[Rfam]
RNA sequence: GAGCAAUGAUUAAAAGGUUUUUCUACUGACGUUUGUAACUGAAUUUUUCUACACUUGACUUGAGCUCA
Numbered sequence: 001g002a003g004c005a006a007u008g009a010u011u012a013a014a015a016g017g018u019u020u021u022u023c024u025a026c027u028g029a030c031g032u033u034u035g036u037a038a039c040u041g042a043a044u045u046u047u048u049c050u051a052c053a054c055u056u057g058a059c060u061u062g063a064g065c066u067c068a
Base pairs, nucleotide, nucleotide: 001067002066003065004064013034014033015032017030018029019028
Rfam assigns this 68-nucleotide RNA from Carlito syrichta to the family "Small nucleolar RNA U2-30". The base pairs follow the family's consensus structure, which is taken from published work. The organism belongs to Carlito, within Eukaryota.